[Rfam]
RNA: c-di-GMP-II-GAG riboswitch aptamer
RNA sequence: GGGUUGACGGGGGGCUCUGACGCGCGGCCCAUACUGCGGCCGCCGGGACCGCGCCGAGCCACUGGCGAGACCGACCCGCCGGGAA
Dot-bracket structure: ...(((.((((.(((......((((((.(........[[.[[[[..).))))))...)))...]]]]...]]..)))).)))...